[Rfam]
RNA sequence: CGAGUUGGUCGGGCGACCGCGUCGGAAUCGAUCGGCGUGAGCCGGUCGGAGCCGCCGAGGAAAGUCCGGGCUCCACAGGGCAGGGUGGUUGUCAACGGCAACCCGGCGUGAGCCGCGGGACAGUGCCACAGAGAACAGACCGCCACGCCAGGUCCGGCCGCGAGGCCGGAUCCGGCGGGGUAAGGGUGAAACGGUGGUGUAAGAGACCACCAGCGUGCCGGGUGACCGGCGCGGCUCGGUAAACCCCACCCGGAGCAAGGUUGAGAGCACCGCCGGCGGCACUUCGGUGCCGACUACGGUGUGCGCAGACGUUCGAGGGCGGCCCGCCCGAGUCUGCGGGUGAACCGCUGGAGCGUGCCGGCGACGGUACGCCGAGAUGGAUGGUCGCCGAACGGGAUCGCCGAGAGGCACCCGGGAACAGGACCCGGCUUACAGACCAACUCGUCCA
Numbered sequence: 001c002g003a004g005u006u007g008g009u010c011g012g013g014c015g016a017c018c019g020c021g022u023c024g025g026a027a028u029c030g031a032u033c034g035g036c037g038u039g040a041g042c043c044g045g046u047c048g049g050a051g052c053c054g055c056c057g058a059g060g061a062a063a064g065u066c067c068g069g070g071c072u073c074c075a076c077a078g079g080g081c082a083g084g085g086u087g088g089u090u091g092u093c094a095a096c097g098g099c100a101a102c103c104c105g106g107c108g109u110g111a112g113c114c115g116c117g118g119g120a121c122a123g124u125g126c127c128a129c130a131g132a133g134a135a136c137a138g139a140c141c142g143c144c145a146c147g148c149c150a151g152g153u154c155c156g157g158c159c160g161c162g163a164g165g166c167c168g169g170a171u172c173c174g175g176c177g178g179g180g181u182a183a184g185g186g187u188g189a190a191a192c193g194g195u196g197g198u199g200u201a202a203g204a205g206a207c208c209a210c211c212a213g214c215g216u217g218c219c220g221g222g223u224g225a226c227c228g229g230c231g232c233g234g235c236u237c238g239g240u241a242a243a244c245c246c247c248a249c250c251c252g253g254a255g256c257a258a259g260g261u262u263g264a265g266a267g268c269a270c271c272g273c274c275g276g277c278g279g280c281a282c283u284u285c286g287g288u289g290c291c292g293a294c295u296a297c298g299g300u301g302u303g304c305g306c307a308g309a310c311g312u313u314c315g316a317g318g319g320c321g322g323c324c325c326g327c328c329c330g331a332g333u334c335u336g337c338g339g340g341u342g343a344a345c346c347g348c349u350g351g352a353g354c355g356u357g358c359c360g361g362c363g364a365c366g367g368u369a370c371g372c373c374g375a376g377a378u379g380g381a382u383g384g385u386c387g388c389c390g391a392a393c394g395g396g397a398u399c400g401c402c403g404a405g406a407g408g409c410a411c412c413c414g415g416g417a418a419c420a421g422g423a424c425c426c427g428g429c430u431u432a433c434a435g436a437c438c439a440a441c442u443c444g445u446c447c448a
Base pairs, nucleotide, nucleotide: 001444002443003442004441005440006439007438008437009436010435011433012389013388014387015386016385017384018383020057021056023054024053025052028049029048030047031046032045033044034043035042062431063430064429066428067427068426069425070424071255072254073253074252078325079324080323081322083251084250085249086248087247088102089101090100091099092098103117104115105114106113107112118246119245123244124243125240126239127238140185141184142181143180144179146177147176148175149174193211194210195209196208197207198206213235214233215232216231217230218229219228220227221226259346260345261344262343305337306336307335308334309333310332317329318328319327320326353372354371355370356369357368358367359366360365

Bacterial RNase P class A: a 448-nucleotide RNA sequence from Nakamurella panacisegetis. The match comes from Rfam's covariance-model search (257 bits). On this family, see Frank and Pace, Annu Rev Biochem 1998: "Ribonuclease P: unity and diversity in a tRNA processing ribozyme".